The record is a 48-nucleotide RNA from Platysternon megacephalum, which matches "MAT2A 3'UTR stem loop C" in Rfam.
Taxonomically the source falls in Platysternon (Eukaryota, Craniata, Archelosauria, Testudinoidea).
The family's RNA type in Rfam is cis-regulatory element.
The match comes from Rfam's covariance-model search (48 bits).
[Rfam]
RNA sequence: GCUCUGAACGGCUGCCAUAGCUACAGAGAAGCCAGCUUCCUUCAGAGC
Number, nucleotide and partner (000 for none) at each position: 001g048002c047003u046004c045005u044006g043007a042008a000009c000010g037011g036012c035013u034014g033015c000016c031017a000018u023019a000020g000021c000022u000023a018024c000025a000026g000027a000028g000029a000030a000031g016032c000033c014034a013035g012036c011037u010038u000039c000040c000041u000042u007043c006044a005045g004046a003047g002048c001